[Rfam]
RNA: Clostridiales-1 RNA
Organism: Firmicutes bacterium CAG:646
RNA sequence: AGAUGCCAAGGUCAAAAGUCAUAAACCACGGUGUGCUUGCACAUAAGUGGUUUCGUGACUUUAUGACCCGCCCCAAUAUGAGGGUGCUGCGUGCCGGUGGCACGCGUUUAGCACCGACCGCAACGGAGUGUAGAAUAAAGUGGGGCGUAUGCCCCACGAUAUCCGAAUUUGGGGCAGAAUUGUGGGAGUGCGCAGCACGAAACAAUUCGUCAAGCAUCU
Numbered sequence: 001a002g003a004u005g006c007c008a009a010g011g012u013c014a015a016a017a018g019u020c021a022u023a024a025a026c027c028a029c030g031g032u033g034u035g036c037u038u039g040c041a042c043a044u045a046a047g048u049g050g051u052u053u054c055g056u057g058a059c060u061u062u063a064u065g066a067c068c069c070g071c072c073c074c075a076a077u078a079u080g081a082g083g084g085u086g087c088u089g090c091g092u093g094c095c096g097g098u099g100g101c102a103c104g105c106g107u108u109u110a111g112c113a114c115c116g117a118c119c120g121c122a123a124c125g126g127a128g129u130g131u132a133g134a135a136u137a138a139a140g141u142g143g144g145g146c147g148u149a150u151g152c153c154c155c156a157c158g159a160u161a162u163c164c165g166a167a168u169u170u171g172g173g174g175c176a177g178a179a180u181u182g183u184g185g186g187a188g189u190g191c192g193c194a195g196c197a198c199g200a201a202a203c204a205a206u207u208c209g210u211c212a213a214g215c216a217u218c219u
Stems, first nucleotide, its partner, number of pairs: 001219006010068004016061007023053007031044005072174003076170001078168002082164004089157001091155001177208007188198004